[Rfam]
Glycine riboswitch aptamer: a 100-nucleotide RNA sequence from Saccharopolyspora montiporae. A search with the family's covariance model found it, with a score of 47 bits.
RNA sequence: GGCGACACUGGAGAAAAGCAGGAGCAGCACGCUCCUCGCCCACGGUGCAAGCCACCCGACCGGUGGCGAAACUCUCAGGCCAGAUGACUCCGGGGAGACC
Numbered sequence: 001g002g003c004g005a006c007a008c009u010g011g012a013g014a015a016a017a018g019c020a021g022g023a024g025c026a027g028c029a030c031g032c033u034c035c036u037c038g039c040c041c042a043c044g045g046u047g048c049a050a051g052c053c054a055c056c057c058g059a060c061c062g063g064u065g066g067c068g069a070a071a072c073u074c075u076c077a078g079g080c081c082a083g084a085u086g087a088c089u090c091c092g093g094g095g096a097g098a099c100c
Stems, first nucleotide, its partner, number of pairs: 006095001008093006020036004038080003042075001045074001047072001051067005